This 108-nucleotide RNA from Gemella haemolysans belongs to the Rfam family "Streptococcus sRNA SpF41". The source organism's lineage runs through Bacteria, Bacillati, Bacilli, Gemella and Gemella haemolysans. The base pairs follow the family's consensus structure, which was predicted with mfold.
RNA sequence: AUGACGUAAGGAGUAGUAUAGAGUGAGUACGCCUUGAUGGAGGAGGCUCAGGUUGAAAUCUUGGCUAUUACGUCUAAGACAUCUAUUUAUGAAUAGGUGUCUUUUUUC
Number, nucleotide and partner (000 for none) at each position: 001a000002u000003g074004a073005c072006g071007u070008a069009a068010g000011g000012a066013g065014u000015a000016g000017u000018a000019u000020a000021g000022a000023g000024u000025g000026a000027g000028u000029a000030c000031g000032c043033c042034u041035u040036g000037a000038u000039g000040g035041a034042g033043g032044a000045g000046g000047c000048u064049c063050a062051g061052g060053u000054u000055g000056a000057a000058a000059u000060c052061u051062u050063g049064g048065c013066u012067a000068u009069u008070a007071c006072g005073u004074c003075u000076a000077a000078g000079a100080c099081a098082u097083c096084u095085a094086u093087u000088u000089a000090u000091g000092a000093a086094u085095a084096g083097g082098u081099g080100u079101c000102u000103u000104u000105u000106u000107u000108c000